[Rfam]
RNA sequence: AGGUGCAUUGCAGGGCAAUUACUCCUUUGGCAAUUGUUCACUUAACUAUUCAAGCGAGGAGGCAUAAGUGAACUCAUUGCCAAAGGAGAUUUGUCCUGCAAUUCAUAU
Number, nucleotide and partner (000 for none) at each position: 001a000002g000003g000004u000005g104006c000007a102008u101009u100010g000011c098012a097013g096014g095015g094016c093017a092018a091019u000020u000021a000022c088023u087024c086025c085026u000027u000028u082029g081030g080031c079032a078033a077034u076035u000036g074037u000038u000039c000040a000041c000042u000043u000044a000045a000046c000047u000048a000049u000050u000051c000052a000053a000054g000055c000056g000057a000058g000059g000060a000061g000062g000063c000064a000065u000066a000067a000068g000069u000070g000071a000072a000073c000074u036075c000076a034077u033078u032079g031080c030081c029082a028083a000084a000085g025086g024087a023088g022089a000090u000091u018092u017093g016094u015095c014096c013097u012098g011099c000100a009101a008102u007103u000104c005105a000106u000107a000108u000